[Rfam]
RNA sequence: AGCAAUGUGAUGAGGUGAUAGAUCUCUGAAUUUCUCUAUGUGGAAUUAAACCAGAUCAUUUACCUUCAAAGUUCUCUGAUUGCU
Numbered sequence: 001a002g003c004a005a006u007g008u009g010a011u012g013a014g015g016u017g018a019u020a021g022a023u024c025u026c027u028g029a030a031u032u033u034c035u036c037u038a039u040g041u042g043g044a045a046u047u048a049a050a051c052c053a054g055a056u057c058a059u060u061u062a063c064c065u066u067c068a069a070a071g072u073u074c075u076c077u078g079a080u081u082g083c084u
Stems, first nucleotide, its partner, number of pairs: 001084005

The record is an 84-nucleotide sequence from Cuscuta australis, which matches "Small nucleolar RNA R160" in Rfam. It scores 59 bits against the family's covariance model. The organism belongs to Cuscuta sect. Cleistogrammica, within Eukaryota. Rfam's curators write: snoR160 is a C/D box small nucleolar RNA, which acts as a methylation guide for 25S ribosomal RNA in plants. snoR160 has been alternatively named snoZ270 in rice. Rfam classes the family as a C/D-box small nucleolar RNA. The pairing is the family consensus, mapped onto this sequence.